[Rfam]
RNA sequence: CUUCUCUUCUCACACCAAAACCUGUGUUCAGCGAUCCUGGCGUCUCCUUCGAGGGACUGUUCGGUUGAUUGCUGUCCAGCUCGACUUUUAUGGAGCCAUCAGAUUAUUGUGAUGUCAAUUUUCCGGUCGACAAGUUUGAGAACAAUGUGGCCCUGGGACAGCGCCUGAGCUCGCUUCGGCUGAGCUCGGCGUGUAACCUGGUCAAGAGCGUCAUAUUCCUGAUCCCUUCGCUGAGGCCGUCGGCUUGUGAAGUUGGGGAAAAACCAUGACUUGCUUACAUCU
Number, nucleotide and partner (000 for none) at each position: 001c000002u000003u000004c000005u000006c000007u000008u000009c000010u000011c000012a000013c000014a000015c000016c000017a000018a137019a136020a135021c134022c000023u132024g131025u130026g077027u000028u000029c074030a073031g072032c000033g070034a069035u068036c067037c064038u063039g062040g061041c059042g057043u056044c055045u054046c053047c000048u000049u000050c000051g000052a000053g046054g045055g044056a043057c042058u000059g041060u000061u040062c039063g038064g037065u000066u000067g036068a035069u034070u033071g000072c031073u030074g029075u000076c000077c026078a000079g000080c000081u000082c000083g000084a000085c129086u000087u126088u125089u000090a000091u117092g116093g115094a000095g113096c000097c111098a000099u000100c000101a000102g000103a000104u000105u000106a000107u000108u000109g000110u000111g097112a000113u095114g000115u093116c092117a091118a000119u000120u000121u000122u000123c000124c000125g088126g087127u000128c000129g085130a025131c024132a023133a000134g021135u020136u019137u018138g000139a000140g000141a000142a000143c000144a000145a000146u000147g000148u000149g000150g202151c201152c200153c000154u000155g000156g198157g000158a000159c000160a000161g000162c191163g190164c189165c188166u000167g187168a186169g185170c184171u183172c182173g180174c179175u000176u000177c000178g000179g174180c173181u000182g172183a171184g170185c169186u168187c167188g165189g164190c163191g162192u000193g000194u000195a000196a000197c000198c156199u000200g152201g151202u150203c000204a000205a000206g000207a275208g274209c273210g270211u269212c268213a267214u266215a000216u000217u000218c000219c000220u000221g000222a000223u259224c258225c257226c256227u255228u000229c000230g253231c252232u251233g000234a000235g245236g244237c243238c242239g000240u000241c000242g238243g237244c236245u235246u000247g000248u000249g000250a000251a232252g231253u230254u000255g227256g226257g225258g224259a223260a000261a000262a000263a000264c000265c000266a214267u213268g212269a211270c210271u000272u000273g209274c208275u207276u000277a000278c000279a000280u000281c000282u000
The record is a 282-nucleotide RNA from Aureobasidium vineae, which matches "A. fumigatus sRNA Afu_309" in Rfam. Rfam 15.1 lists 663 matches to the family in 646 species. A reference for the family is Jochl et al. (2008), "Small ncRNA transcriptome analysis from Aspergillus fumigatus suggests a novel mechanism for regulation of protein synthesis", Nucleic Acids Res. It is annotated as a small RNA. The base pairs follow the family's consensus structure, which was predicted with WAR.